[Rfam]
RNA sequence: UUAUUAAAUUAAGCGCUUGGGGUUAAACAUUUGGGACGUGCUGUGUUUAACCAGACGAGGAUGAGGAGUAUCGGAAAUUCAGCGGGUGCCUCACGGUAUGAUACUACCGUUAAAGCCUGGUAAACCUAAAAAGUGAUUUUUAGAACAAAUCCAGUCAGGUAUCAAG
Numbered sequence: 001u002u003a004u005u006a007a008a009u010u011a012a013g014c015g016c017u018u019g020g021g022g023u024u025a026a027a028c029a030u031u032u033g034g035g036a037c038g039u040g041c042u043g044u045g046u047u048u049a050a051c052c053a054g055a056c057g058a059g060g061a062u063g064a065g066g067a068g069u070a071u072c073g074g075a076a077a078u079u080c081a082g083c084g085g086g087u088g089c090c091u092c093a094c095g096g097u098a099u100g101a102u103a104c105u106a107c108c109g110u111u112a113a114a115g116c117c118u119g120g121u122a123a124a125c126c127u128a129a130a131a132a133g134u135g136a137u138u139u140u141u142a143g144a145a146c147a148a149a150u151c152c153a154g155u156c157a158g159g160u161a162u163c164a165a166g
Base pairs, nucleotide, nucleotide: 021052022051023050024049025048026047027046029044062093063092064091065090066089071082073080074079094109095108096107097106098105115156117154118153119152126143127142128141129140130139131138132137
Notes:
This 166-nucleotide RNA from Clostridium fungisolvens belongs to the Rfam family "glmS glucosamine-6-phosphate activated ribozyme aptamer". NCBI's taxonomy places the organism under Bacteria, Bacillati, Clostridia, Clostridiaceae, Clostridium. The base pairs follow the family's consensus structure, which is taken from published work. Rfam classes the family as a riboswitch. A reference for the family is Winkler et al. (2004), "Control of gene expression by a natural metabolite-responsive ribozyme", Nature.